[Rfam]
RNA sequence: AACUUAAAAACAGAAGGGACGAUGGGUGGCCGAUGAAAAUAUAAUCUUGUUGUAAACGUUUGAACUGAAUUUUUCAAAUGAUACCAAUAGGAUUAGUCUGCCCAUUUUCUCUAAAAAUAACGUAUACGUUUAUUUAGUGCGGCAUAUAUACUAAUCCUUCCAUUAAUAUGAUGGAGGGAUUUUUUU
Number, nucleotide and partner (000 for none) at each position: 001a000002a000003c000004u000005u000006a000007a000008a000009a000010a000011c000012a000013g000014a000015a000016g110017g109018g108019a107020c000021g000022a000023u104024g103025g102026g101027u000028g000029g098030c000031c096032g000033a000034u000035g000036a000037a000038a000039a000040u000041a000042u095043a094044a093045u092046c091047u090048u089049g088050u087051u086052g085053u083054a082055a000056a000057c000058g079059u078060u077061u076062g075063a074064a073065c000066u000067g000068a000069a000070u000071u000072u000073u064074u063075c062076a061077a060078a059079u058080g000081a000082u054083a053084c000085c052086a051087a050088u049089a048090g047091g046092a045093u044094u043095a042096g031097u000098c029099u000100g000101c026102c025103c024104a023105u000106u000107u019108u018109c017110u016111c000112u000113a000114a000115a000116a000117a000118u000119a000120a129121c128122g127123u000124a000125u000126a000127c122128g121129u120130u000131u000132a000133u000134u000135u000136a000137g000138u000139g000140c000141g000142g000143c000144a000145u000146a000147u000148a000149u000150a000151c000152u000153a181154a180155u179156c178157c177158u176159u175160c174161c173162a172163u171164u000165a000166a000167u000168a000169u000170g000171a163172u162173g161174g160175a159176g158177g157178g156179a155180u154181u153182u000183u000184u000185u000186u000

The family of this 186-nucleotide sequence from Brochothrix thermosphacta is "Bacillus sRNA ncr1575".
On this family, see Irnov et al., Nucleic Acids Res 2010: "Identification of regulatory RNAs in Bacillus subtilis".
Taxonomically the source falls in Brochothrix (Bacteria, Bacillota, Bacilli, Listeriaceae).
It scores 107 bits against the family's covariance model.
The base pairs follow the family's consensus structure, which is taken from published work.